[Rfam]
RNA sequence: UACGCUGUAACAUUGGGGCGCGUACUUGGACUCUUGGCUUAAUUGGUAGGUUUGUGUUUGAGCCUGGCUGUCCUAGCGGGGAUUCAGGCGCGGUGGCAUCCUGGUGUAGGCCAGGAUGACGCUGCGGUGAGGGCAGUGAACCGCCUCAGGCUGGAAACAGAACAGGGAACAACUGCCACUGUUUCCGCCGCAUGAACCGCAGUCGGGCCCGCUACUAACCUUCA
Numbered sequence: 001u002a003c004g005c006u007g008u009a010a011c012a013u014u015g016g017g018g019c020g021c022g023u024a025c026u027u028g029g030a031c032u033c034u035u036g037g038c039u040u041a042a043u044u045g046g047u048a049g050g051u052u053u054g055u056g057u058u059u060g061a062g063c064c065u066g067g068c069u070g071u072c073c074u075a076g077c078g079g080g081g082a083u084u085c086a087g088g089c090g091c092g093g094u095g096g097c098a099u100c101c102u103g104g105u106g107u108a109g110g111c112c113a114g115g116a117u118g119a120c121g122c123u124g125c126g127g128u129g130a131g132g133g134c135a136g137u138g139a140a141c142c143g144c145c146u147c148a149g150g151c152u153g154g155a156a157a158c159a160g161a162a163c164a165g166g167g168a169a170c171a172a173c174u175g176c177c178a179c180u181g182u183u184u185c186c187g188c189c190g191c192a193u194g195a196a197c198c199g200c201a202g203u204c205g206g207g208c209c210c211g212c213u214a215c216u217a218a219c220c221u222u223c224a
Stems, first nucleotide, its partner, number of pairs: 011015001044224003048221005054215001064206008073194001076191003080186003085181003089126007097118009132177006144167003151160003
Protozoan signal recognition particle RNA: a 224-nucleotide RNA from Babesia microti.
On this family, see Rosenblad et al., Nucleic Acids Res 2003: "SRPDB: Signal Recognition Particle Database".
Its Rfam clan is "SRP clan".
The family's consensus secondary structure is taken from published work.
It is annotated as a non-coding RNA gene.
Its family is annotated with signal recognition particle, endoplasmic reticulum targeting and SRP-dependent cotranslational protein targeting to membrane, signal sequence recognition in the Gene Ontology.